FMN riboswitch aptamer (RFN element): a 160-nucleotide RNA sequence from Cytobacillus depressus. Rfam links the family to the GO term FMN binding. The source organism's lineage runs through Bacteria, Bacilli, Caryophanales, Bacillaceae and Cytobacillus. A search with the family's covariance model found it, with a score of 120 bits.
RNA sequence: GUCUAUCUUCGGGGCAGGGUGAAAUUCCCGACCGGCGGUGAUGAGUUUUUUUCUCUAAGCCCGCGAGCCACUAGUUCUAGGAAAUGUAAGACCCUAGAACAGGGCAGGAUUUGGUGCGAUUCCAAAGCCGACAGUACAGUCUGGAUGGGAGAAGAUGGAG
Number, nucleotide and partner (000 for none) at each position: 001g000002u000003c158004u157005a156006u155007c154008u153009u152010c151011g000012g000013g000014g000015c000016a000017g029018g028019g027020u000021g000022a000023a000024a000025u000026u000027c019028c018029c017030g000031a140032c139033c130034g129035g064036c063037g062038g061039u000040g000041a000042u000043g000044a000045g000046u000047u000048u000049u000050u000051u000052u000053c000054u000055c000056u000057a000058a000059g128060c127061c038062c037063g036064c035065g000066a000067g000068c000069c104070a000071c000072u000073a000074g000075u000076u000077c000078u000079a000080g000081g000082a000083a000084a000085u000086g000087u000088a000089a000090g000091a000092c000093c000094c000095u000096a000097g000098a000099a000100c000101a000102g000103g000104g069105c000106a000107g000108g000109a000110u126111u125112u124113g123114g122115u000116g000117c000118g000119a000120u000121u000122c114123c113124a112125a111126a110127g060128c059129c034130g033131a000132c143133a142134g141135u000136a000137c000138a000139g032140u031141c134142u133143g132144g000145a000146u000147g000148g000149g000150a000151g010152a009153a008154g007155a006156u005157g004158g003159a000160g000